[Rfam]
Shown here is an 86-nucleotide sequence from Nitrosovibrio sp. Nv17, a member of the family "sRNA-Xcc1". Pairs were carried over by alignment from the consensus structure, which was predicted with RNAalifold. The match comes from Rfam's covariance-model search (72 bits). It is annotated as a small RNA. The literature on the family includes a 2011 paper in Nucleic Acids Res by Schmidtke et al., "Genome-wide transcriptome analysis of the plant pathogen Xanthomonas identifies sRNAs with putative virulence functions".
RNA sequence: GGCCGGGUGUGCGACGGAUACAAGACCCGCAAGGGGAAGAAGUCCGCCGUUUCUUGUGACGGUGUUUAGCGCCCGGCCGCCCUCCG
Numbered sequence: 001g002g003c004c005g006g007g008u009g010u011g012c013g014a015c016g017g018a019u020a021c022a023a024g025a026c027c028c029g030c031a032a033g034g035g036g037a038a039g040a041a042g043u044c045c046g047c048c049g050u051u052u053c054u055u056g057u058g059a060c061g062g063u064g065u066u067u068a069g070c071g072c073c074c075g076g077c078c079g080c081c082c083u084c085c086g
Stems, first nucleotide, its partner, number of pairs: 001078009013044003026035003045064006